[Rfam]
RNA sequence: CUAAUUCCGACUAAAGACCAAUUGCAGACGAGAAUUAGAGAGAAAAAAGCUGGCAGAGCCCAUAGAGAGAAAGCGUUUAUAAGAGUCGGCGAUAAAAAAGAGCUUAUAGACCCACCAAGAAUUCCAGAGAAAGAAUUCAAGGAGCUAGAGAGAAUCUCACUUUAGACCUCUAAGGAACUCGAAUUAAGAAA
Numbered sequence: 001c002u003a004a005u006u007c008c009g010a011c012u013a014a015a016g017a018c019c020a021a022u023u024g025c026a027g028a029c030g031a032g033a034a035u036u037a038g039a040g041a042g043a044a045a046a047a048a049g050c051u052g053g054c055a056g057a058g059c060c061c062a063u064a065g066a067g068a069g070a071a072a073g074c075g076u077u078u079a080u081a082a083g084a085g086u087c088g089g090c091g092a093u094a095a096a097a098a099a100g101a102g103c104u105u106a107u108a109g110a111c112c113c114a115c116c117a118a119g120a121a122u123u124c125c126a127g128a129g130a131a132a133g134a135a136u137u138c139a140a141g142g143a144g145c146u147a148g149a150g151a152g153a154a155u156c157u158c159a160c161u162u163u164a165g166a167c168c169u170c171u172a173a174g175g176a177a178c179u180c181g182a183a184u185u186a187a188g189a190a191a
Base pairs, nucleotide, nucleotide: 001049002048011038012037013036014035061174063172064171065170066169075111076110077109078108079107080106081105082104083103119138120137121136122135123134127158128157129156130155145165146164147163148162149161150160

Overview:
This 191-nucleotide sequence belongs to the Rfam family "IMES-1 RNA motif". The family's consensus secondary structure is taken from published work.